ASpks TB sRNA: a 75-nucleotide RNA sequence from Streptomyces griseorubiginosus. Pairs were carried over by alignment from the consensus structure, which is taken from published work. A search with the family's covariance model found it, with a score of 77 bits.
RNA sequence: CUUGACGGACCCGAGCCACAACGGCCGUUCGCCGGGCCGGUCCUGACCGUAGGUGGCCAGCAGAGCCUCGGCCUC
Numbered sequence: 001c002u003u004g005a006c007g008g009a010c011c012c013g014a015g016c017c018a019c020a021a022c023g024g025c026c027g028u029u030c031g032c033c034g035g036g037c038c039g040g041u042c043c044u045g046a047c048c049g050u051a052g053g054u055g056g057c058c059a060g061c062a063g064a065g066c067c068u069c070g071g072c073c074u075c
Stems, first nucleotide, its partner, number of pairs: 015025003032070001038065001043060003047056003